The family of this 386-nucleotide RNA sequence from Chlorobium limicola is "Bacterial RNase P class A". Rfam links the family to the GO terms ribonuclease P activity, dimeric ribonuclease P complex and tRNA processing. Pairs were carried over by alignment from the consensus structure, which is taken from published work. It is one of the family's seed sequences. Lineage of the source: Bacteria > Chlorobiia > Chlorobiales > Chlorobiaceae > Chlorobium.
RNA sequence: AAACCGCAAGUGUGCAGUCGCUGUAUGGCUUGACGCUGUGCAGAGGAAAGUCCGAACUUCACAGGGCAGGGUGCCGGUCGAGAACCUGGUUCAAGGCCGGGGGCAGCGGUGCAAACCGUCUGUCACAGAGAGUGCAACAGAAAGCAAACCGCCCCGGCUCCGGCCGGAGUAAGGGUGAAAAGGCGGUGUAAGAGACCACCAGGUGCGUCAGCAAUGCCGUACGCUAUGAAAACCUCCCCGAAGCAAGGCCAAAUAUGGAAGCUUUUUCCGCAAGGAAAGAAGGGUUGCCCGCCCAACGUUUCCGGGUAGGCCGCAUCAGAUAAAUGACUGCAGCUUCAUCACUCGAUGAUGAUUCACAGAAUUCGGCUUACAGCUUCGGUUUCAGC
Numbered sequence: 001a002a003a004c005c006g007c008a009a010g011u012g013u014g015c016a017g018u019c020g021c022u023g024u025a026u027g028g029c030u031u032g033a034c035g036c037u038g039u040g041c042a043g044a045g046g047a048a049a050g051u052c053c054g055a056a057c058u059u060c061a062c063a064g065g066g067c068a069g070g071g072u073g074c075c076g077g078u079c080g081a082g083a084a085c086c087u088g089g090u091u092c093a094a095g096g097c098c099g100g101g102g103g104c105a106g107c108g109g110u111g112c113a114a115a116c117c118g119u120c121u122g123u124c125a126c127a128g129a130g131a132g133u134g135c136a137a138c139a140g141a142a143a144g145c146a147a148a149c150c151g152c153c154c155c156g157g158c159u160c161c162g163g164c165c166g167g168a169g170u171a172a173g174g175g176u177g178a179a180a181a182g183g184c185g186g187u188g189u190a191a192g193a194g195a196c197c198a199c200c201a202g203g204u205g206c207g208u209c210a211g212c213a214a215u216g217c218c219g220u221a222c223g224c225u226a227u228g229a230a231a232a233c234c235u236c237c238c239c240g241a242a243g244c245a246a247g248g249c250c251a252a253a254u255a256u257g258g259a260a261g262c263u264u265u266u267u268c269c270g271c272a273a274g275g276a277a278a279g280a281a282g283g284g285u286u287g288c289c290c291g292c293c294c295a296a297c298g299u300u301u302c303c304g305g306g307u308a309g310g311c312c313g314c315a316u317c318a319g320a321u322a323a324a325u326g327a328c329u330g331c332a333g334c335u336u337c338a339u340c341a342c343u344c345g346a347u348g349a350u351g352a353u354u355c356a357c358a359g360a361a362u363u364c365g366g367c368u369u370a371c372a373g374c375u376u377c378g379g380u381u382u383c384a385g386c
Stems, first nucleotide, its partner, number of pairs: 001382006008376004012371001013332007021043009048369003052366005057243004064290004069239003073236001086100005101126001102124004127235002132233002135228002149174002151170002154167005182200002185197003202224001203222005209216002247312004257303006282294004
Dot-bracket structure: ((((((.((((((((((((.(((((((((.....)))))))))....[[[.[[[[[((((...[[[[.(((.(............(((((.....)))))(((((...............)))).)((...((.((............((((.(((((....))))).))..)).......((.(((.......))).)).((((((.((....)).))))).)..))...))))))))))))...((((......((((((...................((((.]]]]))))...)))))).....)))).............))))))).............................]]]]]]]].).))))))))))....